Rfam assigns this 71-nucleotide sequence from Cyprinus carpio to the family "mir-2985 microRNA precursor family". From the family's description: RNAs can be post-transcriptional modified, in micro RNAs (miRNA) editing of pre-mRNA is a common process. Rfam links the family to the GO terms miRNA-mediated post-transcriptional gene silencing and RISC complex.
RNA sequence: ACAGUUAAGGUGGGUGGAGUAGUAUAACAAUAUGUCACGUGUUGUUAUGGUAUUCCACCUUCCCUGGCGUG
Numbered sequence: 001a002c003a004g005u006u007a008a009g010g011u012g013g014g015u016g017g018a019g020u021a022g023u024a025u026a027a028c029a030a031u032a033u034g035u036c037a038c039g040u041g042u043u044g045u046u047a048u049g050g051u052a053u054u055c056c057a058c059c060u061u062c063c064c065u066g067g068c069g070u071g
Base pairs, nucleotide, nucleotide: 004068005067006066007065009063010062012060013059014058015057016056017055019053020052021051023049024048025047026046027045028044029043030042031041032040033039